[Rfam]
RNA sequence: GUGCCUAAAUUUAACGAGUAAGGAAAACCAUUAUGUCUUGCUAAUCGCUUGACAGAGCGCUUCUAGGCAGUGUGGAGUUUUGUCCCUUCAAACGGGGGCAUGUUUCACAUGAAGCACAAUUUUUGUAUGGGCACAGGUCGUCCCUUUGAACUUGGCUGUCAGAGGGCCCUCUACUCUUUGGGUCCUUUGCACAGGGGUUUGGGUGUAGCGAUCUGCCCG
Numbered sequence: 001g002u003g004c005c006u007a008a009a010u011u012u013a014a015c016g017a018g019u020a021a022g023g024a025a026a027a028c029c030a031u032u033a034u035g036u037c038u039u040g041c042u043a044a045u046c047g048c049u050u051g052a053c054a055g056a057g058c059g060c061u062u063c064u065a066g067g068c069a070g071u072g073u074g075g076a077g078u079u080u081u082g083u084c085c086c087u088u089c090a091a092a093c094g095g096g097g098g099c100a101u102g103u104u105u106c107a108c109a110u111g112a113a114g115c116a117c118a119a120u121u122u123u124u125g126u127a128u129g130g131g132c133a134c135a136g137g138u139c140g141u142c143c144c145u146u147u148g149a150a151c152u153u154g155g156c157u158g159u160c161a162g163a164g165g166g167c168c169c170u171c172u173a174c175u176c177u178u179u180g181g182g183u184c185c186u187u188u189g190c191a192c193a194g195g196g197g198u199u200u201g202g203g204u205g206u207a208g209c210g211a212u213c214u215g216c217c218c219g
Base pairs, nucleotide, nucleotide: 004023005022006021008019034054035053036052037051040048060114061113062112063111128219129218130217131216132215135214136213137212138211139210140209141208144203145202148199149198151196152195153194
Rfam assigns this 219-nucleotide sequence from Musca domestica to the family "U12 minor spliceosomal RNA". Rfam classes the family as a spliceosomal small nuclear RNA. The family is grouped with related families in Rfam's "U2 clan".